[Rfam]
RNA sequence: ACACAGAUGUGAACAAAUCAGGAUGAAUAACUGAUACUGUAAAUGUUUUCUGAUGUG
Numbered sequence: 001a002c003a004c005a006g007a008u009g010u011g012a013a014c015a016a017a018u019c020a021g022g023a024u025g026a027a028u029a030a031c032u033g034a035u036a037c038u039g040u041a042a043a044u045g046u047u048u049u050c051u052g053a054u055g056u057g
Base pairs, nucleotide, nucleotide: 001056002055003054009049012047013046014045019039020038021037023035024034